Shown here is a 73-nucleotide RNA from Thalassospira mesophila, a member of the family "tRNA".
Pairs were carried over by alignment from the consensus structure, which is taken from published work.
Rfam classes the family as a transfer RNA.
NCBI's taxonomy places the organism under Bacteria, Pseudomonadati, Alphaproteobacteria, Rhodospirillales, Thalassospira.
The match comes from Rfam's covariance-model search (61 bits).
RNA sequence: GGGGCCGUAGCUCAGUUGGGAGAGCGCUACAAUGGCAUUGUAGAGGUCGUCAGUUCGAUCCUGAUCGGCUCCA
Numbered sequence: 001g002g003g004g005c006c007g008u009a010g011c012u013c014a015g016u017u018g019g020g021a022g023a024g025c026g027c028u029a030c031a032a033u034g035g036c037a038u039u040g041u042a043g044a045g046g047u048c049g050u051c052a053g054u055u056c057g058a059u060c061c062u063g064a065u066c067g068g069c070u071c072c073a
Base pairs, nucleotide, nucleotide: 001072002071003070004069005068006067007066010025011024012023013022027043028042029041030040031039049065050064051063052062053061